The record is a 74-nucleotide RNA sequence, which matches "Fluoride riboswitch aptamer (crcB RNA motif)" in Rfam.
It scores 46 bits against the family's covariance model.
[Rfam]
RNA sequence: UCAAGUAUAGGUGAUGAUGUUCACCUAAAUAAAAAACUGCCUGUUAUUAACAGGAUAAUGACAUCUACUAAAAA
Numbered sequence: 001u002c003a004a005g006u007a008u009a010g011g012u013g014a015u016g017a018u019g020u021u022c023a024c025c026u027a028a029a030u031a032a033a034a035a036a037c038u039g040c041c042u043g044u045u046a047u048u049a050a051c052a053g054g055a056u057a058a059u060g061a062c063a064u065c066u067a068c069u070a071a072a073a074a
Base pairs, nucleotide, nucleotide: 010025011024012023013022016065017064018063019062020061021060040054041053042052043051044050045049